[Rfam]
RNA sequence: GCAUAGGUGAGGAUGGAUGGCAGUCUGUCCCCCUGUUCUUCUUAUAGUGUCCCAUGCCAGAGCAAACUGUGGCCCCAAACCAUUGCUAUCCUGCAUAUCCAUAUGCUGCAGGCACGGAAGUGGGUGACACAGAG
Numbered sequence: 001g002c003a004u005a006g007g008u009g010a011g012g013a014u015g016g017a018u019g020g021c022a023g024u025c026u027g028u029c030c031c032c033c034u035g036u037u038c039u040u041c042u043u044a045u046a047g048u049g050u051c052c053c054a055u056g057c058c059a060g061a062g063c064a065a066a067c068u069g070u071g072g073c074c075c076c077a078a079a080c081c082a083u084u085g086c087u088a089u090c091c092u093g094c095a096u097a098u099c100c101a102u103a104u105g106c107u108g109c110a111g112g113c114a115c116g117g118a119a120g121u122g123g124g125u126g127a128c129a130c131a132g133a134g
Stems, first nucleotide, its partner, number of pairs: 001057004006051003017045004022040001023038001025035001070127001072125004081117001086112001087108002090105001092103001
Shown here is a 134-nucleotide RNA sequence from Fukomys damarensis, a member of the family "Small nucleolar RNA SNORA42/SNORA80 family". Its family is annotated with RNA processing and nucleolus in the Gene Ontology. A search with the family's covariance model found it, with a score of 76 bits. Taxonomically the source falls in Fukomys (Eukaryota, Metazoa, Dipnotetrapodomorpha, Rodentia). Rfam 15.1 lists 1,535 matches to the family in 183 species.